This 397-nucleotide part of an RNA from Lachnellula suecica belongs to the Rfam family "Eukaryotic small subunit ribosomal RNA". For this family Rfam cites "The comparative RNA web (CRW) site: an online database of comparative sequence and structure information for ribosomal, intron, and other RNAs" (Cannone et al., BMC Bioinformatics, 2002). A search with the family's covariance model found it, with a score of 1427 bits. Lineage of the source: Eukaryota > Dikarya > saccharomyceta > Helotiales > Lachnellula. The family has 90 seed sequences and 75,755 matches in Rfam 15.1.
RNA sequence: AAUACUGAUACAGGGCUCUUUUGGGUCUUGUAAUUGGAAUGAGUACAAUUUAAAUCCCUUAACGAGGAACAAUUGGAGGGCAAGUCUGGUGGAUUUAGUCCUUGCUGACGCCAGAGAUAGUGAGAUAAUUCAUUAGUCGAGCACUCAAUCUGUGAUGGGUGAGUGCCGGCAAGACAACCUGGAUCGGGGAAAGCUAUCAACGCCAAUCCCGAGCAGAGCUCUCAGAGCCUGUGUAGAGCGCGCAAAGGUGUCGGCUGCAUUUAAUGUAGCUUGAGGUACGUGCCAUACCCAUGUGAAAGCAUGCCUGCAAUCGGAACACCCAUCAUGUGAAGAUUAUAGGGAGCGAAAGCUUGGAAGAUAAUAAUAGGCCAGCAGCCGCGGUAAUUCCAGCUCCAAU
Numbered sequence: 001a002a003u004a005c006u007g008a009u010a011c012a013g014g015g016c017u018c019u020u021u022u023g024g025g026u027c028u029u030g031u032a033a034u035u036g037g038a039a040u041g042a043g044u045a046c047a048a049u050u051u052a053a054a055u056c057c058c059u060u061a062a063c064g065a066g067g068a069a070c071a072a073u074u075g076g077a078g079g080g081c082a083a084g085u086c087u088g089g090u091g092g093a094u095u096u097a098g099u100c101c102u103u104g105c106u107g108a109c110g111c112c113a114g115a116g117a118u119a120g121u122g123a124g125a126u127a128a129u130u131c132a133u134u135a136g137u138c139g140a141g142c143a144c145u146c147a148a149u150c151u152g153u154g155a156u157g158g159g160u161g162a163g164u165g166c167c168g169g170c171a172a173g174a175c176a177a178c179c180u181g182g183a184u185c186g187g188g189g190a191a192a193g194c195u196a197u198c199a200a201c202g203c204c205a206a207u208c209c210c211g212a213g214c215a216g217a218g219c220u221c222u223c224a225g226a227g228c229c230u231g232u233g234u235a236g237a238g239c240g241c242g243c244a245a246a247g248g249u250g251u252c253g254g255c256u257g258c259a260u261u262u263a264a265u266g267u268a269g270c271u272u273g274a275g276g277u278a279c280g281u282g283c284c285a286u287a288c289c290c291a292u293g294u295g296a297a298a299g300c301a302u303g304c305c306u307g308c309a310a311u312c313g314g315a316a317c318a319c320c321c322a323u324c325a326u327g328u329g330a331a332g333a334u335u336a337u338a339g340g341g342a343g344c345g346a347a348a349g350c351u352u353g354g355a356a357g358a359u360a361a362u363a364a365u366a367g368g369c370c371a372g373c374a375g376c377c378g379c380g381g382u383a384a385u386u387c388c389a390g391c392u393c394c395a396a397u
Stems, first nucleotide, its partner, number of pairs: 006036003009032010043063002045060001047059001073396006086390004092379001